Overview: Shown here is a 58-nucleotide sequence from Lyngbya sp. PCC 8106, a member of the family "Cyano-1 RNA". NCBI's taxonomy places the organism under Bacteria, Cyanophyceae, Oscillatoriales, Microcoleaceae, Lyngbya.
[Rfam]
Nucleotides: 058
Base pairs, nucleotide, nucleotide: 014054015053016052017051018050019049020048021047022046023045024044025042026041027040
Number, partner (000 for none) and nucleotide at each position: 001000a002000g003000g004000u005000c006000u007000g008000u009000a010000g011000a012000a013000g014054a015053a016052g017051u018050g019049c020048u021047u022046g023045g024044g025042g026041u027040c028000g029000a030000a031000a032000c033000a034000c035000g036000g037000c038000c039000a040027g041026a042025c043000u044024c045023c046022c047021a048020g049019g050018u051017a052016c053015u054014u055000u056000u057000u058000c